[Rfam]
RNA sequence: UGAGUCGGCCGGGCGGCCGCGGCAGGAGUGAUCCUGUCGAGGAAAGUCCGGACUCCGAAGGGCAAGGUGGUGGCUAACGGCCACCCGGGGUGACCCGCGGGACAGUGCCACAGAAAUCAGACCGCCACCGGUUCGCCGGCGGUAAGGGUGAAACGGUGGUGUAAGAGACCACCAGCACGCCAGGUGACUGGCGUGGCUCGGUAAACCCCACCUGGAGCAAGAUCAGACAGCGUGCGUUCGAGGGCGGCCCGCCCGAGCACGCGGGUAGAUCGCUGGAGGCGGCCGGCAACGGUCGUCGUAGAUGGAUGGUCGCCGUGGCGCCGCCGGGAGACCGGCAGCGUCAUACAAAAUCCGGCUUACAGGCCGGCUCAUCCG
Number, nucleotide and partner (000 for none) at each position: 001u371002g370003a369004g368005u367006c366007g365008g364009c363010c362011g360012g314013g313014c312015g311016g310017c309018c308019g000020c039021g038022g037023c036024a035025g034026g033027a032028g000029u000030g000031a000032u027033c026034c025035u024036g023037u022038c021039g020040a000041g000042g000043a000044a358045a357046g356047u000048c355049c354050g353051g352052a351053c217054u216055c215056c214057g000058a000059a000060g250061g249062g248063c247064a000065a213066g212067g211068u210069g209070g084071u083072g082073g081074c080075u000076a000077a000078c000079g000080g074081c073082c072083a071084c070085c099086c097087g096088g095089g094090g000091u000092g000093a000094c089095c088096c087097g086098c000099g085100g208101g207102a000103c000104a000105g206106u205107g202108c201109c200110a000111c000112a000113g000114a000115a000116a000117u000118c000119a000120g000121a000122c147123c146124g143125c142126c141127a000128c139129c138130g137131g136132u000133u000134c000135g000136c131137c130138g129139g128140c000141g126142g125143u124144a000145a000146g123147g122148g000149u000150g000151a000152a000153a000154c000155g173156g172157u171158g170159g169160u168161g000162u000163a000164a000165g000166a000167g000168a160169c159170c158171a157172c156173c155174a000175g197176c195177a194178c193179g192180c191181c190182a189183g188184g000185u000186g000187a000188c183189u182190g181191g180192c179193g178194u177195g176196g000197c175198u000199c000200g109201g108202u107203a000204a000205a106206c105207c101208c100209c069210a068211c067212c066213u065214g056215g055216a054217g053218c000219a000220a000221g271222a270223u269224c268225a000226g000227a000228c000229a000230g262231c261232g260233u259234g258235c257236g000237u000238u000239c000240g000241a000242g254243g253244g252245c251246g000247g063248c062249c061250c060251g245252c244253c243254c242255g000256a000257g235258c234259a233260c232261g231262c230263g000264g000265g000266u000267a000268g224269a223270u222271c221272g000273c000274u000275g000276g000277a000278g297279g296280c295281g294282g293283c292284c291285g290286g000287c000288a000289a000290c285291g284292g283293u282294c281295g280296u279297c278298g000299u000300a000301g000302a000303u000304g000305g000306a000307u000308g018309g017310u016311c015312g014313c013314c012315g000316u000317g000318g000319c000320g000321c000322c000323g000324c000325c000326g000327g000328g000329a000330g000331a000332c000333c000334g000335g000336c000337a000338g000339c000340g000341u000342c000343a000344u000345a000346c000347a000348a000349a000350a000351u052352c051353c050354g049355g048356c046357u045358u044359a000360c011361a000362g010363g009364c008365c007366g006367g005368c004369u003370c002371a001372u000373c000374c000375g000
Rfam assigns this 375-nucleotide RNA sequence from Flexivirga aerilata to the family "Bacterial RNase P class A". By type it is a ribozyme. About the family: Ribonuclease P (RNase P) is a ubiquitous endoribonuclease, found in archaea, bacteria and eukarya as well as chloroplasts and mitochondria. The base pairs follow the family's consensus structure, which is taken from published work.